[Rfam]
RNA sequence: UGCGGGACGACCCGCGCUUCCCCCAAAACUCGGGACGACCCGU
Numbered sequence: 001u002g003c004g005g006g007a008c009g010a011c012c013c014g015c016g017c018u019u020c021c022c023c024c025a026a027a028a029c030u031c032g033g034g035a036c037g038a039c040c041c042g043u
Stems, first nucleotide, its partner, number of pairs: 001016006031042004
Overview: A member of the RNA family "Guanidine-II riboswitch aptamer (mini-ykkC)" from Vannielia litorea, 43 nucleotides long. About the family: Simpler in structure and has fewer highly conserved nucleotide positions than the ykkC-yxkD leader. A search with the family's covariance model found it, with a score of 36 bits. The family's consensus secondary structure is taken from published work. For this family Rfam cites "Identification of 22 candidate structured RNAs in bacteria using the CMfinder comparative genomics pipeline" (Weinberg et al., Nucleic Acids Res, 2007).